[Rfam]
Rfam assigns this 184-nucleotide sequence from Coprococcus sp. AF21-14LB to the family "6S / SsrS RNA". The family has 150 seed sequences and 5,006 matches in Rfam 15.1. The family's consensus secondary structure is taken from published work. E. coli 6S RNA was the first non coding RNA to be sequenced, but its function was unknown until recently. It consists of 184 nucleotides that fold into an extended hairpin structure with a large single-stranded internal bulge. The 6S RNA specifically associates with RNA polymerase holoenzyme containing the sigma70 specificity factor. This interaction represses expression from a sigma70-dependent promoter during stationary phase. 6S RNA homologs have recently been identified in most bacterial genomes.
RNA sequence: GAAAACCUGGGAUGUUCGAUACCUCUUGUAAUUUUGAACCUACAAUACUUUAAACGGGAGACUUAUUAUCUCUGUAAUAUGUCAUGCCUCCAGGGUAUGCGUGGAAGACAGAAAAGCAGAUGCGGUCACCCACCUAGCAGAAUGCUAGGAGUCAAAAUACAGGAGCCGGCAUUUUGGGCAUCAU
Numbered sequence: 001g002a003a004a005a006c007c008u009g010g011g012a013u014g015u016u017c018g019a020u021a022c023c024u025c026u027u028g029u030a031a032u033u034u035u036g037a038a039c040c041u042a043c044a045a046u047a048c049u050u051u052a053a054a055c056g057g058g059a060g061a062c063u064u065a066u067u068a069u070c071u072c073u074g075u076a077a078u079a080u081g082u083c084a085u086g087c088c089u090c091c092a093g094g095g096u097a098u099g100c101g102u103g104g105a106a107g108a109c110a111g112a113a114a115a116g117c118a119g120a121u122g123c124g125g126u127c128a129c130c131c132a133c134c135u136a137g138c139a140g141a142a143u144g145c146u147a148g149g150a151g152u153c154a155a156a157a158u159a160c161a162g163g164a165g166c167c168g169g170c171a172u173u174u175u176g177g178g179c180a181u182c183a184u
Stems, first nucleotide, its partner, number of pairs: 003181001006178010017168002031158007039149002056131003060127004069120003073116001075114001081109002087104002090101001
The match comes from Rfam's covariance-model search (62 bits).